SAM riboswitch aptamer (S box leader): a 111-nucleotide RNA from Guptibacillus hwajinpoensis.
[Rfam]
RNA sequence: UUCUUAUCUAGAGAGGCGGAGGGACUGGCCCUAUGAAGCCCGGCAACCGUCAAACCAUUCGUGGUUUGAAAAGGUGCCAAUUCCUGCAGGAGAAAUCCUGGAAGAUAAGCG
Numbered sequence: 001u002u003c004u005u006a007u008c009u010a011g012a013g014a015g016g017c018g019g020a021g022g023g024a025c026u027g028g029c030c031c032u033a034u035g036a037a038g039c040c041c042g043g044c045a046a047c048c049g050u051c052a053a054a055c056c057a058u059u060c061g062u063g064g065u066u067u068g069a070a071a072a073g074g075u076g077c078c079a080a081u082u083c084c085u086g087c088a089g090g091a092g093a094a095a096u097c098c099u100g101g102a103a104g105a106u107a108a109g110c111g
Stems, first nucleotide, its partner, number of pairs: 001111001003109006013041001015040003021031003025086001027084002042078004047074002050069006082103001087100005

NCBI's taxonomy places the organism under Bacteria, Bacillati, Bacilli, Caryophanales, Guptibacillus. The SAM riboswitch is found upstream of a number of genes which code for proteins involved in methionine or cysteine biosynthesis in Gram-positive bacteria. The match comes from Rfam's covariance-model search (92 bits).